[Rfam]
RNA sequence: UGAGUCGGCCGGACGGUCGCGGCGCCUCCGGGCGUCGAGGAAAGUCCGGACUCCACAGAGCGCGGUGGUGGCUAACGGCCACCCACGGUGACGUGCGGGACAGUGCCACAGAGAACAGACCGCCAGCGGCCACCCUCGGGUGGUGCGGGUAAGGGUGAAACGGUGAGGUAAGAGCUCACCAGCACGGCGGGCGACCGUCGUGGCUAGGUAAACCCCACCGGGAGCAAGACCAAGUUGGCCCCUCACGGGGUCGUGCCACAGGGCUGCUCGUCCGACGUGGCAGGUGGGUCGCACCGAGGUGUCCAGCAAUGGGCAUCCCAGAUGGAUGGCCGUCCCUGCUCCGGCAGGACAGAAUCCGGCUUACAGGCCGACUCAUUCG
Dot-bracket structure: ((((((((((((((((((.(((((((....)))))))....[[[.[[[[[((((...[[[[.((((((((((.....)))))(((((....)))).)((...(((((............(((((.(((.(...........).))).)))..)).......((((((.......)))))).(((((((((....)))))))).)..)))..)))))))))))))...((((......(((.(..................((((.]]]]))))...).))).....)))).......((((((((....))))))))..........)))))))....................]]]]]]]].).))))))))))....